[Rfam]
RNA sequence: CACUGGCCAAGACAACACUGACGGGCGUCCUCGGGCCUUCGCGGCGGGGGAGGUAAGCGCCGCGGCCUGCCUUUUCCAGGCCUGCUUCGAGCCCGUGUCGCGGCUCCUCGUGACCCCGGGGCUUCUGUCGCCCUCAGAUAGGGACGUCGUCGUCGCGCUCCGUGGCCACCGCCUGUUGCUGGACUCCGAGACUCCCGAGCGACCGCUGAGCGACGGGCCCACAGCGCCGGCAAGAUGAAGUGGACUGUGGCGGCGGCGGCGCUGCUG
Numbered sequence: 001c002a003c004u005g006g007c008c009a010a011g012a013c014a015a016c017a018c019u020g021a022c023g024g025g026c027g028u029c030c031u032c033g034g035g036c037c038u039u040c041g042c043g044g045c046g047g048g049g050g051a052g053g054u055a056a057g058c059g060c061c062g063c064g065g066c067c068u069g070c071c072u073u074u075u076c077c078a079g080g081c082c083u084g085c086u087u088c089g090a091g092c093c094c095g096u097g098u099c100g101c102g103g104c105u106c107c108u109c110g111u112g113a114c115c116c117c118g119g120g121g122c123u124u125c126u127g128u129c130g131c132c133c134u135c136a137g138a139u140a141g142g143g144a145c146g147u148c149g150u151c152g153u154c155g156c157g158c159u160c161c162g163u164g165g166c167c168a169c170c171g172c173c174u175g176u177u178g179c180u181g182g183a184c185u186c187c188g189a190g191a192c193u194c195c196c197g198a199g200c201g202a203c204c205g206c207u208g209a210g211c212g213a214c215g216g217g218c219c220c221a222c223a224g225c226g227c228c229g230g231c232a233a234g235a236u237g238a239a240g241u242g243g244a245c246u247g248u249g250g251c252g253g254c255g256g257c258g259g260c261g262c263u264g265c266u267g
Stems, first nucleotide, its partner, number of pairs: 004256001006254003016165001019162002030120006057106001059104007169181001171179002